[Rfam]
RNA sequence: GGUCGGUGAUGAACAGUAAAAGGUCUGAUUACCCACAAUCCUUUCCUGCGGCCCUCUGGCUCCCAGCAGCCCCCGCUGUCUGUCCCGUCAUGCUCCAGUGCUGCAUGGCGGUCCAGCGGCUGCUGACACACACAGGAAGUGACGUCACGGCGAGGCUGUUCUCAGAGCGGCGGCCUCCGUGUGACUGACCUCCGACACAACCAAUCGGCACGGAGCGCGGGGCCGCGGAGGGGGAGGGGGGCUGAUCUCAAGUUUUCAAGCUGAGGCC
Numbered sequence: 001g002g003u004c005g006g007u008g009a010u011g012a013a014c015a016g017u018a019a020a021a022g023g024u025c026u027g028a029u030u031a032c033c034c035a036c037a038a039u040c041c042u043u044u045c046c047u048g049c050g051g052c053c054c055u056c057u058g059g060c061u062c063c064c065a066g067c068a069g070c071c072c073c074c075g076c077u078g079u080c081u082g083u084c085c086c087g088u089c090a091u092g093c094u095c096c097a098g099u100g101c102u103g104c105a106u107g108g109c110g111g112u113c114c115a116g117c118g119g120c121u122g123c124u125g126a127c128a129c130a131c132a133c134a135g136g137a138a139g140u141g142a143c144g145u146c147a148c149g150g151c152g153a154g155g156c157u158g159u160u161c162u163c164a165g166a167g168c169g170g171c172g173g174c175c176u177c178c179g180u181g182u183g184a185c186u187g188a189c190c191u192c193c194g195a196c197a198c199a200a201c202c203a204a205u206c207g208g209c210a211c212g213g214a215g216c217g218c219g220g221g222g223c224c225g226c227g228g229a230g231g232g233g234g235a236g237g238g239g240g241g242c243u244g245a246u247c248u249c250a251a252g253u254u255u256u257c258a259a260g261c262u263g264a265g266g267c268c
Stems, first nucleotide, its partner, number of pairs: 001268004038246003043230001044228002047225002060215004064125007085111009139193001141192002144189003152177009
Rfam assigns this 268-nucleotide sequence from Salarias fasciatus to the family "Small Cajal body specific RNA 6". U88 is small Cajal body specific RNA (scaRNA). scaRNAs are a novel class of small nuclear RNAs which localise to the Cajal bodies. U88 is found associated with both fibrillarin and Gar1p and co-localises with coilin in Cajal bodies. A reference for the family is Darzacq et al. (2002), "Cajal body-specific small nuclear RNAs: a novel class of 2'-O-methylation and pseudouridylation guide RNAs", EMBO J. Lineage of the source: Eukaryota > Actinopterygii > Clupeocephala > Blenniimorphae > Salarias.